[Rfam]
RNA sequence: AAAAAACAGGGGUUGUAGGGAUGAAAUCCCCUGCCCGCUUUCAGGAAGGUGCUCAGCCAGCUUCGCUGGUGUCGAAGGAAAC
Numbered sequence: 001a002a003a004a005a006a007c008a009g010g011g012g013u014u015g016u017a018g019g020g021a022u023g024a025a026a027u028c029c030c031c032u033g034c035c036c037g038c039u040u041u042c043a044g045g046a047a048g049g050u051g052c053u054c055a056g057c058c059a060g061c062u063u064c065g066c067u068g069g070u071g072u073c074g075a076a077g078g079a080a081a082c
Stems, first nucleotide, its partner, number of pairs: 015034004019029003056070005
A member of the RNA family "Clostridiales-2 RNA" from Alkaliphilus metalliredigens, 82 nucleotides long. Rfam classes the family as a small RNA. Lineage of the source: Bacteria > Clostridia > Peptostreptococcales > Alkaliphilus > Alkaliphilus metalliredigens. The family's consensus secondary structure is taken from published work.